Overview: The record is a 134-nucleotide RNA from Cynoglossus semilaevis, which matches "Small nucleolar RNA SNORA5" in Rfam. From the family's description: ACA5 is a member of the H/ACA class of snoRNA that guide the sites of modification of uridines to pseudouridines. By type it is an H/ACA-box small nucleolar RNA. Rfam links the family to the GO terms RNA processing and nucleolus. Taxonomically the source falls in Cynoglossus (Eukaryota, Deuterostomia, Actinopteri, Clupeocephala). A search with the family's covariance model found it, with a score of 76 bits. The base pairs follow the family's consensus structure, which was predicted with RNAfold. The family is grouped with related families in Rfam's "SNORA5 clan".
RNA sequence: UGCAGCUUGGUCAAAUUCAGUGUGUUUUUCACAGUGGACCUCACUGGCCAAAAUGGCUGCCACAGAGAUUGUAGUUCAUGGGCCCCACAUCUUUCAAUAUAGGCAGUGGGGAUAAAAAUGUACUACAGACAAAU
Numbered sequence: 001u002g003c004a005g006c007u008u009g010g011u012c013a014a015a016u017u018c019a020g021u022g023u024g025u026u027u028u029u030c031a032c033a034g035u036g037g038a039c040c041u042c043a044c045u046g047g048c049c050a051a052a053a054u055g056g057c058u059g060c061c062a063c064a065g066a067g068a069u070u071g072u073a074g075u076u077c078a079u080g081g082g083c084c085c086c087a088c089a090u091c092u093u094u095c096a097a098u099a100u101a102g103g104c105a106g107u108g109g110g111g112a113u114a115a116a117a118a119u120g121u122a123c124u125a126c127a128g129a130c131a132a133a134u
Base pairs, nucleotide, nucleotide: 002060003059004058005057018046019045020044021043022042024040026038027037028036071126072125073124074123075122076120083111084110085109087107088106